[Rfam]
The family of this 96-nucleotide RNA from Candidatus Enterococcus clewellii is "azaaromatic riboswitch aptamer (yjdF RNA)". Taxonomically the source falls in Enterococcus (Bacteria, Bacillati, Bacillota, Enterococcaceae).
RNA sequence: GUAUAAGGGCAUAAAAACACGUUUUGGUUGGUAGUACAAAAGCAUAAUUUGUCAGUAACCUUCCCUCCUGGGUCGUCCAUUGUUCUUGUUCUAUUU
Numbered sequence: 001g002u003a004u005a006a007g008g009g010c011a012u013a014a015a016a017a018c019a020c021g022u023u024u025u026g027g028u029u030g031g032u033a034g035u036a037c038a039a040a041a042g043c044a045u046a047a048u049u050u051g052u053c054a055g056u057a058a059c060c061u062u063c064c065c066u067c068c069u070g071g072g073u074c075g076u077c078c079a080u081u082g083u084u085c086u087u088g089u090u091c092u093a094u095u096u
Stems, first nucleotide, its partner, number of pairs: 004088008022041005042052003063072003